RNA sequence: GAGUCACGGCACGCCGGUCAGCGAGGUUUCGCCCACCGGCGUUUUCGGC
Numbered sequence: 001g002a003g004u005c006a007c008g009g010c011a012c013g014c015c016g017g018u019c020a021g022c023g024a025g026g027u028u029u030c031g032c033c034c035a036c037c038g039g040c041g042u043u044u045u046c047g048g049c
Base pairs, nucleotide, nucleotide: 012041013040014039015038016037017036018035021032022031023030024029
A member of the RNA family "ffh sRNA" from Novosphingobium sp. CF614, 49 nucleotides long. The match comes from Rfam's covariance-model search (36 bits). The family's consensus secondary structure is taken from published work. NCBI's taxonomy places the organism under Bacteria, Pseudomonadati, Alphaproteobacteria, Sphingomonadales, Novosphingobium. The literature on the family includes a 2009 paper in BMC Genomics by Meyer et al., "Identification of candidate structured RNAs in the marine organism 'Candidatus Pelagibacter ubique'". It is annotated as a small RNA.